[Rfam]
RNA sequence: GCUACCCGGCGGUUCUCCUCCCAUUGUCGCCGGGUGGUGUUCCCCUCUGGAGGUUUAUCAACCUUCAUUUGGCCGGGCCUUUCGAGCCCGGCCUUUUUU
Numbered sequence: 001g002c003u004a005c006c007c008g009g010c011g012g013u014u015c016u017c018c019u020c021c022c023a024u025u026g027u028c029g030c031c032g033g034g035u036g037g038u039g040u041u042c043c044c045c046u047c048u049g050g051a052g053g054u055u056u057a058u059c060a061a062c063c064u065u066c067a068u069u070u071g072g073c074c075g076g077g078c079c080u081u082u083c084g085a086g087c088c089c090g091g092c093c094u095u096u097u098u099u
Stems, first nucleotide, its partner, number of pairs: 002037002005034003009030004048067007071093005076087001079084001
Description:
This 99-nucleotide RNA sequence from Kumtagia ephedrae belongs to the Rfam family "Alphaproteobacterial ar15". The organism belongs to Kumtagia, within Bacteria. Pairs were carried over by alignment from the consensus structure.